[Rfam]
Nucleotides: 377
Base pairs, nucleotide, nucleotide: 001373002372003371004370005369006368007367008366009365010364011362012324013323014322015321016320017319018318020036021035022034023033024032025031041360042359043358045357046356047355048354049353050211051210052209053208058258059257061255063207064206065205066204067203068082069081070080071079072078083097084095085094086093087092098202099201103200104199105196106195107194120142121141122138123137124136125135126134127133128132150168151167152166153165154164169191170189171188172187173186174185175184176183177182215281216280217279218278225272226271227270228269229268249263250262251261253259288307289306290305291304292303293302294301295300
Number, partner (000 for none) and nucleotide at each position: 001373g002372c003371g004370g005369a006368g007367g008366g009365c010364u011362g012324g013323a014322u015321g016320a017319c018318c019000g020036c021035g022034u023033g024032g025031c026000u027000u028000c029000g030000u031025g032024c033023c034022g035021c036020g037000a038000g039000g040000a041360a042359a043358g044000u045357c046356c047355g048354g049353a050211c051210u052209c053208c054000a055000u056000a057000a058258g059257g060000u061255g062000a063207c064206g065205g066204u067203g068082c069081c070080g071079g072078g073000u074000a075000a076000c077000g078072c079071c080070c081069g082068g083097c084095g085094g086093g087092g088000g089000c090000a091000a092087c093086c094085c095084c096000a097083g098202g099201g100000a101000a102000a103200g104199c105196g106195c107194c108000a109000c110000a111000g112000a113000g114000a115000a116000c117000a118000g119000a120142c121141c122138g123137c124136c125135c126134g127133c128132a129000a130000a131000c132128u133127g134126c135125g136124g137123g138122u139000a140000a141121g142120g143000g144000u145000g146000a147000a148000a149000c150168g151167g152166u153165g154164g155000a156000g157000u158000a159000a160000g161000a162000g163000c164154c165153c166152a167151c168150c169191g170189g171188g172187g173186g174185g175184c176183u177182g178000g179000c180000a181000a182177c183176a184175g185174u186173c187172c188171c189170c190000g191169c192000a193000u194107g195106g196105c197000a198000a199104g200103c201099c202098c203067c204066a205065c206064c207063g208053g209052g210051a211050g212000c213000a214000a215281u216280g217279c218278c219000g220000a221000a222000u223000a224000g225272g226271g227270a228269c229268c230000g231000c232000g233000c234000g235000c236000g237000g238000c239000g240000c241000a242000a243000g244000c245000u246000g247000c248000a249263g250262g251261g252000c253259u254000a255061c256000c257059u258058u259253g260000c261251c262250c263249c264000a265000g266000c267000a268229g269228g270227u271226c272225c273000g274000g275000g276000u277000a278218g279217g280216c281215a282000g283000c284000u285000a286000g287000a288307u289306c290305c291304g292303g293302c294301u295300g296000g297000c298000a299000a300295c301294a302293g303292c304291c305290g306289g307288g308000c309000c310000a311000g312000a313000g314000g315000a316000a317000u318018g319017g320016u321015c322014a323013u324012c325000c326000c327000g328000u329000u330000u331000c332000g333000g334000g335000g336000c337000a338000a339000c340000c341000c342000g343000a344000c345000a346000g347000a348000c349000a350000g351000a352000a353049u354048c355047c356046g357045g358043c359042u360041u361000a362011c363000a364010g365009g366008c367007c368006c369005u370004u371003c372002g373001c374000g375000c376000a377000g